Rfam assigns this 141-nucleotide RNA from Arachis hypogaea to the family "Small nucleolar RNA snoR136". Rfam links the family to the GO terms nucleolus and RNA processing. A reference for the family is Chen and Wu (2009), "Mining small RNA sequencing data: a new approach to identify small nucleolar RNAs in Arabidopsis", Nucleic Acids Res. The family's consensus secondary structure was predicted with mfold.
RNA sequence: AGGGCUUCAAAUUAAAAUGAAUUUUGGCAUGUACUAUUUCAUUGUGCAUCGCAGUUUAUGUUUGGAGCCGAGAUGUGUGUUACCCUCGCUAUCCUGGGUUGCAAUUUUGAUGCUCCACUAGGACGUCGGGGAACUAAAUCU
Numbered sequence: 001a002g003g004g005c006u007u008c009a010a011a012u013u014a015a016a017a018u019g020a021a022u023u024u025u026g027g028c029a030u031g032u033a034c035u036a037u038u039u040c041a042u043u044g045u046g047c048a049u050c051g052c053a054g055u056u057u058a059u060g061u062u063u064g065g066a067g068c069c070g071a072g073a074u075g076u077g078u079g080u081u082a083c084c085c086u087c088g089c090u091a092u093c094c095u096g097g098g099u100u101g102c103a104a105u106u107u108u109g110a111u112g113c114u115c116c117a118c119u120a121g122g123a124c125g126u127c128g129g130g131g132a133a134c135u136a137a138a139u140c141u
Stems, first nucleotide, its partner, number of pairs: 003069003008064005014059001016057002024054003029049002034046001079134003083130003087125002092123005101113003